A member of the RNA family "Potassium channel RNA editing signal" from Nothobranchius furzeri, 114 nucleotides long.
This family represents a group of sequences related to the human potassium channel Kv1.1 hairpin element which directs the efficient modification of an adenosine to inosine by an adenosine deaminase acting on RNA (ADAR). The ADAR modification causes an isoleucine/valine recoding event which lies in the ion-conducting pore of the potassium channel. It is thought that this editing event targets the process of fast inactivation and allows a more rapid recovery from inactivation at negative potentials.
A search with the family's covariance model found it, with a score of 103 bits.
The organism belongs to Nothobranchius, within Eukaryota.
The base pairs follow the family's consensus structure, which is taken from published work.
The family has 85 seed sequences and 14,095 matches in Rfam 15.1.
RNA sequence: UUGGGAUAUGGUGAUAUGUACCCUAUGACAUGGUCAGGAAUGCUGGUGGGUGCCCUCUGUGCCUUGGCAGGUGUCCUGACUAUUGCUAUGCCUGUUCCUGUCAUUGUCAACAAU
Numbered sequence: 001u002u003g004g005g006a007u008a009u010g011g012u013g014a015u016a017u018g019u020a021c022c023c024u025a026u027g028a029c030a031u032g033g034u035c036a037g038g039a040a041u042g043c044u045g046g047u048g049g050g051u052g053c054c055c056u057c058u059g060u061g062c063c064u065u066g067g068c069a070g071g072u073g074u075c076c077u078g079a080c081u082a083u084u085g086c087u088a089u090g091c092c093u094g095u096u097c098c099u100g101u102c103a104u105u106g107u108c109a110a111c112a113a114u
Base pairs, nucleotide, nucleotide: 002113004111008107009106010105011104013102014101015100016099018097020095021094037077038076040074049063050062051061